[Rfam]
RNA: Vibrio RNA AS9
RNA sequence: UUGCUUGCAGCGCUUGUCAGUCAGCGUCAGGCAGAUGAGACCACGUCCGUGAGUCGCCAUAAAGUUGAUUGCGUCAGGCGUGACCGCCUCGGCAGCCAUCAACA
Numbered sequence: 001u002u003g004c005u006u007g008c009a010g011c012g013c014u015u016g017u018c019a020g021u022c023a024g025c026g027u028c029a030g031g032c033a034g035a036u037g038a039g040a041c042c043a044c045g046u047c048c049g050u051g052a053g054u055c056g057c058c059a060u061a062a063a064g065u066u067g068a069u070u071g072c073g074u075c076a077g078g079c080g081u082g083a084c085c086g087c088c089u090c091g092g093c094a095g096c097c098a099u100c101a102a103c104a
Stems, first nucleotide, its partner, number of pairs: 003058001005056001007054002010027005035050003039047003066104002069101001071096002073093003077088003